[Rfam]
RNA sequence: UGGCGCCCAACGUGGGGCUCCAGCAUGGGGGAUCCAGUGAAGGACGCCGUUCGAGUGGCUAGCAGAAAGGAAAAGAAAAGAGGGAACGAUGUGGGAACCUGCUGCGUCUGCACCCCUUGGGUAAUUGAACGGUGAUUAUGGGUCAAGCAUUGAGCCAAGAUAAGAUUUUUGUUGAAGGACUAGGAAAGGCUAUCAAGGCACGAGGAGUAAAGGUAAAAAUUAAGCAUUUAUGUCAGUAUUUUCAAUAUAUUAAGGAAAUUUGUCCUU
Numbered sequence: 001u002g003g004c005g006c007c008c009a010a011c012g013u014g015g016g017g018c019u020c021c022a023g024c025a026u027g028g029g030g031g032a033u034c035c036a037g038u039g040a041a042g043g044a045c046g047c048c049g050u051u052c053g054a055g056u057g058g059c060u061a062g063c064a065g066a067a068a069g070g071a072a073a074a075g076a077a078a079a080g081a082g083g084g085a086a087c088g089a090u091g092u093g094g095g096a097a098c099c100u101g102c103u104g105c106g107u108c109u110g111c112a113c114c115c116c117u118u119g120g121g122u123a124a125u126u127g128a129a130c131g132g133u134g135a136u137u138a139u140g141g142g143u144c145a146a147g148c149a150u151u152g153a154g155c156c157a158a159g160a161u162a163a164g165a166u167u168u169u170u171g172u173u174g175a176a177g178g179a180c181u182a183g184g185a186a187a188g189g190c191u192a193u194c195a196a197g198g199c200a201c202g203a204g205g206a207g208u209a210a211a212g213g214u215a216a217a218a219a220u221u222a223a224g225c226a227u228u229u230a231u232g233u234c235a236g237u238a239u240u241u242u243c244a245a246u247a248u249a250u251u252a253a254g255g256a257a258a259u260u261u262g263u264c265c266u267u
Stems, first nucleotide, its partner, number of pairs: 006031003012026003039047001080118002082115002087110001090106005125146004130142001133140002152193001154190003202242004207237002211229004252267005
Mason-Pfizer monkey virus packaging signal: a 267-nucleotide RNA from Molossus molossus. Its family is annotated with viral genome packaging in the Gene Ontology. Rfam classes the family as a cis-regulatory element. A reference for the family is Harrison et al. (1995), "Secondary structure model of the Mason-Pfizer monkey virus 5' leader sequence: identification of a structural motif common to a variety of retroviruses", J Virol. NCBI's taxonomy places the organism under Eukaryota, Teleostomi, Tetrapoda, Laurasiatheria, Molossus.